RNA: FMN riboswitch aptamer (RFN element)
RNA sequence: CAACGUUCUCAGGGCGGGGUGAGAUUCCCCACCGGCGGUGAUGACGCAACACGCGUCCAGCCCGCGAGCGCUUGGAGACGGCCGCUUCGGCAGCGCCUUCAAGGUCAGCAGAUCCGGUGUGAUUCCGGAGCCGACGGUCAUAGUCCGGAUGAAGAGAGAGCGGGA
Numbered sequence: 001c002a003a004c005g006u007u008c009u010c011a012g013g014g015c016g017g018g019g020u021g022a023g024a025u026u027c028c029c030c031a032c033c034g035g036c037g038g039u040g041a042u043g044a045c046g047c048a049a050c051a052c053g054c055g056u057c058c059a060g061c062c063c064g065c066g067a068g069c070g071c072u073u074g075g076a077g078a079c080g081g082c083c084g085c086u087u088c089g090g091c092a093g094c095g096c097c098u099u100c101a102a103g104g105u106c107a108g109c110a111g112a113u114c115c116g117g118u119g120u121g122a123u124u125c126c127g128g129a130g131c132c133g134a135c136g137g138u139c140a141u142a143g144u145c146c147g148g149a150u151g152a153a154g155a156g157a158g159a160g161c162g163g164g165a
Base pairs, nucleotide, nucleotide: 004162005161006160007159008158009157010156017029018028019027031144032143033133034132035065036064037063038062060131061130068109069108113129114128115127116126117125135147136146137145